RNA: 6S-Flavo RNA
RNA sequence: ACUCAACACUAUUAAGUUUAAAAAGGGUGAGUUUAGAUUGUAAAAGCAUGCCUGGCUUGUACCAGGAUCCUUGAUCAGUUUGGUAACCCUAAACCUGUUAAUUGGAGUUU
Numbered sequence: 001a002c003u004c005a006a007c008a009c010u011a012u013u014a015a016g017u018u019u020a021a022a023a024a025g026g027g028u029g030a031g032u033u034u035a036g037a038u039u040g041u042a043a044a045a046g047c048a049u050g051c052c053u054g055g056c057u058u059g060u061a062c063c064a065g066g067a068u069c070c071u072u073g074a075u076c077a078g079u080u081u082g083g084u085a086a087c088c089c090u091a092a093a094c095c096u097g098u099u100a101a102u103u104g105g106a107g108u109u110u
Stems, first nucleotide, its partner, number of pairs: 024090005035081005044072003051066004